[Rfam]
RNA sequence: GGUCAUGAGUUCCAGCUUUGAGCCCCGGCUUGCUGGACGGCAACCCUCCACCGCGGUGGGGUGCUCCGGGUGAAGACCAGGCAGGCAUCAAAAGUUGCCUUGCAAGCGCGGGCU
Numbered sequence: 001g002g003u004c005a006u007g008a009g010u011u012c013c014a015g016c017u018u019u020g021a022g023c024c025c026c027g028g029c030u031u032g033c034u035g036g037a038c039g040g041c042a043a044c045c046c047u048c049c050a051c052c053g054c055g056g057u058g059g060g061g062u063g064c065u066c067c068g069g070g071u072g073a074a075g076a077c078c079a080g081g082c083a084g085g086c087a088u089c090a091a092a093a094g095u096u097g098c099c100u101u102g103c104a105a106g107c108g109c110g111g112g113c114u
Stems, first nucleotide, its partner, number of pairs: 001078004009038001011037006021030002039065003044061003048056002081103003084099004089094001
The record is a 114-nucleotide sequence from Epidermidibacterium keratini, which matches "SAM (S-adenosyl methionine) riboswitch aptamer" in Rfam.
The match comes from Rfam's covariance-model search (109 bits).
SAM-IV is a mRNA element that regulates gene expression via direct sensing of S-adenosylmethionine (SAM or AdoMet). SAM-IV riboswitches share conserved nucleotide positions with the previously described SAM-I riboswitches sequence analysis and molecular recognition experiments suggest that SAM-I and SAM-IV riboswitches share similar ligand binding sites, but have different scaffolds.
The family has 40 seed sequences and 2,360 matches in Rfam 15.1.